[Rfam]
Early nodulin 40: a 252-nucleotide RNA sequence from Gossypium schwendimanii. The family's RNA type in Rfam is non-coding RNA gene. It scores 62 bits against the family's covariance model.
RNA sequence: AUGGUAUUAUUUUGGCAAAUGGGGUCUUCAUAAAGCACUGGGGAGGGGGGAGUUUGGGUGGGAUUCCUCCAUUCUCACCCUCAGCCCACAAUUAAAACAGUUUGGCAGUGCUUAUUACCCAAUAAGCUUUGCAUGGAAGAGGAUCCAUCCUACAGAGCACCACCUAUCUGCGGAGGCUUUUUUGGCUAAUGCACUGGCAAAUCGGCAAGUCACGAAAAGGGCAAUCAACUCAUAGUAAUUAGUAUGAGUCUG
Numbered sequence: 001a002u003g004g005u006a007u008u009a010u011u012u013u014g015g016c017a018a019a020u021g022g023g024g025u026c027u028u029c030a031u032a033a034a035g036c037a038c039u040g041g042g043g044a045g046g047g048g049g050g051a052g053u054u055u056g057g058g059u060g061g062g063a064u065u066c067c068u069c070c071a072u073u074c075u076c077a078c079c080c081u082c083a084g085c086c087c088a089c090a091a092u093u094a095a096a097a098c099a100g101u102u103u104g105g106c107a108g109u110g111c112u113u114a115u116u117a118c119c120c121a122a123u124a125a126g127c128u129u130u131g132c133a134u135g136g137a138a139g140a141g142g143a144u145c146c147a148u149c150c151u152a153c154a155g156a157g158c159a160c161c162a163c164c165u166a167u168c169u170g171c172g173g174a175g176g177c178u179u180u181u182u183u184g185g186c187u188a189a190u191g192c193a194c195u196g197g198c199a200a201a202u203c204g205g206c207a208a209g210u211c212a213c214g215a216a217a218a219g220g221g222c223a224a225u226c227a228a229c230u231c232a233u234a235g236u237a238a239u240u241a242g243u244a245u246g247a248g249u250c251u252g
Base pairs, nucleotide, nucleotide: 049086050085100202101201102200103199104198122190123189228249229248230247231246232245233244234243